[Rfam]
RNA sequence: CUAUGUGAAAGUGCUGAAGAAAAAGUUUACUUUGGAAUGGCUAUGAGCAUUAAAAAAAGACUGAAAACACAC
Numbered sequence: 001c002u003a004u005g006u007g008a009a010a011g012u013g014c015u016g017a018a019g020a021a022a023a024a025g026u027u028u029a030c031u032u033u034g035g036a037a038u039g040g041c042u043a044u045g046a047g048c049a050u051u052a053a054a055a056a057a058a059g060a061c062u063g064a065a066a067a068c069a070c071a072c
Base pairs, nucleotide, nucleotide: 002071004069005068006067010062011061012060022051023050025048026047027046033043034042035041